The record is a 76-nucleotide RNA sequence from Myotis lucifugus, which matches "mir-9229 microRNA precursor family" in Rfam.
RNA sequence: GAGACACCCCUAUGUAGCAGGAUUUGCUUCAGUGGGGCUUUAGUGCUCACUGAAUCUGCCCCUGAAGUGUGUUGCU
Numbered sequence: 001g002a003g004a005c006a007c008c009c010c011u012a013u014g015u016a017g018c019a020g021g022a023u024u025u026g027c028u029u030c031a032g033u034g035g036g037g038c039u040u041u042a043g044u045g046c047u048c049a050c051u052g053a054a055u056c057u058g059c060c061c062c063u064g065a066a067g068u069g070u071g072u073u074g075c076u
Base pairs, nucleotide, nucleotide: 001075003073004072005071006070007069009067011065014062017059018058019057021056022055023054029053030052031051032050033049034048035047036046037044038043